[Rfam]
RNA sequence: GACACAGACCGCCUUAUCGCCACGUUAUAUACGUGGAGGAAAGUCCGGACACCAAAGGGAAGCAUAGCGGGUAACACCCGUCGGUUCGCCACGGCGAAUUAGGACAAGUGCAACAGAAAGUAUGUACAGGUAAUGCUGUAGUGAAACCAGGUAAACUCUAUGCGGUGAAAUAUCAAGUAUAUCAGCAUUUAAGGGCUUCUCGUCCGUUGUUGAAGGGUAGAUAGCUUGAGUCACAUAGUAAUAUGUGAUCUAGAUAAAUGAUAAGGCUCCAAUUUAUUGGAGACAGAAUCCGGCUUAUAGGUCUGUUUUUUUU
Numbered sequence: 001g002a003c004a005c006a007g008a009c010c011g012c013c014u015u016a017u018c019g020c021c022a023c024g025u026u027a028u029a030u031a032c033g034u035g036g037a038g039g040a041a042a043g044u045c046c047g048g049a050c051a052c053c054a055a056a057g058g059g060a061a062g063c064a065u066a067g068c069g070g071g072u073a074a075c076a077c078c079c080g081u082c083g084g085u086u087c088g089c090c091a092c093g094g095c096g097a098a099u100u101a102g103g104a105c106a107a108g109u110g111c112a113a114c115a116g117a118a119a120g121u122a123u124g125u126a127c128a129g130g131u132a133a134u135g136c137u138g139u140a141g142u143g144a145a146a147c148c149a150g151g152u153a154a155a156c157u158c159u160a161u162g163c164g165g166u167g168a169a170a171u172a173u174c175a176a177g178u179a180u181a182u183c184a185g186c187a188u189u190u191a192a193g194g195g196c197u198u199c200u201c202g203u204c205c206g207u208u209g210u211u212g213a214a215g216g217g218u219a220g221a222u223a224g225c226u227u228g229a230g231u232c233a234c235a236u237a238g239u240a241a242u243a244u245g246u247g248a249u250c251u252a253g254a255u256a257a258a259u260g261a262u263a264a265g266g267c268u269c270c271a272a273u274u275u276a277u278u279g280g281a282g283a284c285a286g287a288a289u290c291c292g293g294c295u296u297a298u299a300g301g302u303c304u305g306u307u308u309u310u311u312u313u
Base pairs, nucleotide, nucleotide: 001309002308004306005305006304007303008302009301010300011298012266013265014264015263016262017261018260020036021035022034023033024032025031041296042295043294045293046292047291048290049289050167051166052165053164057201058200059199060198062163063162064161065160066159067081068080069079070078071077082102083100084099085098086097087096088095089094103158104157108156109155110152111151125140126139127138128137129136171223172222173221174220182213183212184211185210186209193205194204195203196202230249231248232247233246234245235244236243237242
Overview: A member of the RNA family "Bacterial RNase P class A" from Flavobacterium pygoscelis, 313 nucleotides long. Ribonuclease P (RNase P) is a ubiquitous endoribonuclease, found in archaea, bacteria and eukarya as well as chloroplasts and mitochondria. The source organism's lineage runs through Bacteria, Bacteroidota, Flavobacteriia, Flavobacteriales and Flavobacterium.